[Rfam]
The family of this 397-nucleotide RNA sequence from Sedimentitalea nanhaiensis is "Bacterial RNase P class A". Rfam classes the family as a ribozyme. Taxonomically the source falls in Sedimentitalea (Bacteria, Pseudomonadati, Rhodobacterales, Paracoccaceae).
RNA sequence: GCGGAGGGCCGGAUGGCCGCUGGUGUCGCAAGGCACGAGAGGAAAGUCCGGACUCCACAAGGCAACGGUGCCGGGUAACGCCCGGGCAGGGCAACCUGACGGAUAGCGCCACAGAAAACAGACCGCCUGUGUCCGCACAGGUAAGGGUGAAACGGUGGGGUAAGAGCCCACCGCGCCGCUGGCAACAGGGGCGGCAUGGCAAGCCCCACCGGGAGCAAUGCCAAAUAGGACCCCCGCGCGGGACCGGUCCCGGCAACGGGAUACCGCCGCUAGGCGCGCGUUGGCCGAGAGGGGUCGGGUUGGCAGCUGGACGCACGUGGCAACACGGGCGCUAGAGGAAUGGUCAUCGACGGGGGUAACCCCUGAACAGAAUCCGGCUUACAGGCCCUCCGCGCAA
Numbered sequence: 001g002c003g004g005a006g007g008g009c010c011g012g013a014u015g016g017c018c019g020c021u022g023g024u025g026u027c028g029c030a031a032g033g034c035a036c037g038a039g040a041g042g043a044a045a046g047u048c049c050g051g052a053c054u055c056c057a058c059a060a061g062g063c064a065a066c067g068g069u070g071c072c073g074g075g076u077a078a079c080g081c082c083c084g085g086g087c088a089g090g091g092c093a094a095c096c097u098g099a100c101g102g103a104u105a106g107c108g109c110c111a112c113a114g115a116a117a118a119c120a121g122a123c124c125g126c127c128u129g130u131g132u133c134c135g136c137a138c139a140g141g142u143a144a145g146g147g148u149g150a151a152a153c154g155g156u157g158g159g160g161u162a163a164g165a166g167c168c169c170a171c172c173g174c175g176c177c178g179c180u181g182g183c184a185a186c187a188g189g190g191g192c193g194g195c196a197u198g199g200c201a202a203g204c205c206c207c208a209c210c211g212g213g214a215g216c217a218a219u220g221c222c223a224a225a226u227a228g229g230a231c232c233c234c235c236g237c238g239c240g241g242g243a244c245c246g247g248u249c250c251c252g253g254c255a256a257c258g259g260g261a262u263a264c265c266g267c268c269g270c271u272a273g274g275c276g277c278g279c280g281u282u283g284g285c286c287g288a289g290a291g292g293g294g295u296c297g298g299g300u301u302g303g304c305a306g307c308u309g310g311a312c313g314c315a316c317g318u319g320g321c322a323a324c325a326c327g328g329g330c331g332c333u334a335g336a337g338g339a340a341u342g343g344u345c346a347u348c349g350a351c352g353g354g355g356g357u358a359a360c361c362c363c364u365g366a367a368c369a370g371a372a373u374c375c376g377g378c379u380u381a382c383a384g385g386c387c388c389u390c391c392g393c394g395c396a397a
Base pairs, nucleotide, nucleotide: 001393002392003391004390005389006388007387008386009385010384011382012348013347014346015345016344017343018342020039021038023036024035025034026033027032044380045379046378048377049376050375051374052373053215054214055213056212064281066211067210068209069208070207071085072084073083074082075081086100087098088097089096090095101206102205106204107203108200109199110198123146124145125142126141127140128139129138130137131136154172155171156170157169158168159167173195174193175192176191177190179188180187181186219305220304221303222302229296230295231294232293233292234291275289277287278286312331313330314329316327317326318325319324